[Rfam]
RNA sequence: UGUCAAGAGUCAUAAACGUCAUUUUGGCGGGUGGAUAUCUUUUGCCUAAAUAAAGGUGAAGGAAAAUG
Numbered sequence: 001u002g003u004c005a006a007g008a009g010u011c012a013u014a015a016a017c018g019u020c021a022u023u024u025u026g027g028c029g030g031g032u033g034g035a036u037a038u039c040u041u042u043u044g045c046c047u048a049a050a051u052a053a054a055g056g057u058g059a060a061g062g063a064a065a066a067u068g
Base pairs, nucleotide, nucleotide: 010063011062013060017058018057019056020055022054023053024052029047031045032044033043034042035041
The family of this 68-nucleotide RNA sequence from Brucella rhizosphaerae is "S-element".
A reference for the family is Venkova-Canova et al. (2004), "Two discrete elements are required for the replication of a repABC plasmid: an antisense RNA and a stem-loop structure", Mol Microbiol.
The base pairs follow the family's consensus structure, which is taken from published work.
About the family: This family represents a group of S-elements from p42d and related plasmids.
A search with the family's covariance model found it, with a score of 62 bits.